Shown here is an 88-nucleotide RNA from Streptomyces sp. 8K308, a member of the family "sodF sRNA".
The family's RNA type in Rfam is small RNA.
The pairing is the family consensus, mapped onto this sequence.
Rfam links the family to the GO terms mRNA binding, negative regulation of translation and regulation of mRNA stability.
RNA sequence: ACGUCCUGCCCGUGAUCGUCUUCUCACCCUUCAUGGCGGGCGGCACAACGAAGGUCCUCCGGCCGGCACAUCCGACCGGAGAACCUUC
Numbered sequence: 001a002c003g004u005c006c007u008g009c010c011c012g013u014g015a016u017c018g019u020c021u022u023c024u025c026a027c028c029c030u031u032c033a034u035g036g037c038g039g040g041c042g043g044c045a046c047a048a049c050g051a052a053g054g055u056c057c058u059c060c061g062g063c064c065g066g067c068a069c070a071u072c073c074g075a076c077c078g079g080a081g082a083a084c085c086u087u088c
Stems, first nucleotide, its partner, number of pairs: 002042002005040006012034004018028001050088006057081006064074002